[Rfam]
RNA sequence: ACUCCGAAAGGGCACACCCGGGGAAACCCGGCGCCGCAAAGCUACAGGGGCUUCGACCUUAAAAAGUUACGCUAGCCAGCUGCCGAA
Numbered sequence: 001a002c003u004c005c006g007a008a009a010g011g012g013c014a015c016a017c018c019c020g021g022g023g024a025a026a027c028c029c030g031g032c033g034c035c036g037c038a039a040a041g042c043u044a045c046a047g048g049g050g051c052u053u054c055g056a057c058c059u060u061a062a063a064a065a066g067u068u069a070c071g072c073u074a075g076c077c078a079g080c081u082g083c084c085g086a087a
Stems, first nucleotide, its partner, number of pairs: 012037002018031005040081004047077002049073003056067002059064001
About this RNA: The family of this 87-nucleotide sequence from Neobacillus piezotolerans is "c-di-GMP-I riboswitch aptamer". It scores 68 bits against the family's covariance model. Pairs were carried over by alignment from the consensus structure, which is taken from published work. Taxonomically the source falls in Neobacillus (Bacteria, Bacillota, Bacilli, Caryophanales).